mir-4435 microRNA precursor family: a 77-nucleotide RNA sequence from Diceros bicornis. Rfam links the family to the GO terms RISC complex and miRNA-mediated post-transcriptional gene silencing.

Nucleotides: 077
Base pairs, nucleotide, nucleotide: 001076002075003074006068007067008066009065014060015059016058018057019056020055021054022053023052029048030047031046034044035043036042
Number, partner (000 for none) and nucleotide at each position: 001076g002075c003074a004000a005000a006068u007067g008066g009065c010000c011000a012000a013000a014060g015059a016058g017000c018057u019056c020055a021054u022053a023052c024000a025000u026000a027000u028000g029048g030047g031046g032000u033000g034044g035043g036042c037000u038000g039000c040000a041000c042036g043035u044034c045000a046031c047030c048029u049000g050000c051000a052023g053022u054021g055020u056019g057018a058016c059015u060014c061000a062000g063000c064000a065009g066008c067007c068006a069000g070000c071000a072000g073000a074003u075002g076001c077000c